[Rfam]
RNA sequence: UAGAUAGGCGUAGGUGACCCACUUGGUGCAGAAGCUACACACGCUCUUGCUGCAGGUAUGGGCGGUAUCCGCACUGCCGGAGAUCUGGUAAUGCGUUUAC
Number, nucleotide and partner (000 for none) at each position: 001u000002a000003g000004a000005u000006a000007g038008g000009c000010g035011u034012a000013g000014g000015u030016g029017a027018c026019c025020c000021a000022c000023u000024u000025g019026g018027u017028g000029c016030a015031g000032a000033a000034g011035c010036u000037a000038c007039a000040c000041a000042c000043g000044c000045u000046c000047u000048u000049g000050c000051u000052g000053c000054a000055g000056g000057u000058a000059u000060g000061g000062g000063c000064g000065g000066u000067a000068u000069c000070c000071g000072c000073a092074c000075u090076g089077c088078c000079g086080g085081a000082g000083a000084u000085c080086u079087g000088g077089u076090a075091a000092u073093g000094c000095g000096u000097u000098u000099a000100c000

Shown here is a 100-nucleotide sequence from Emergencia timonensis, a member of the family "Pyrrolysine insertion sequence mtbB". The family's consensus secondary structure was predicted with WAR. Rfam classes the family as a cis-regulatory element. A search with the family's covariance model found it, with a score of 58 bits. NCBI's taxonomy places the organism under Bacteria, Clostridia, Peptostreptococcales, Anaerovoracaceae, Emergencia. The family has 23 seed sequences and 59 matches in Rfam 15.1.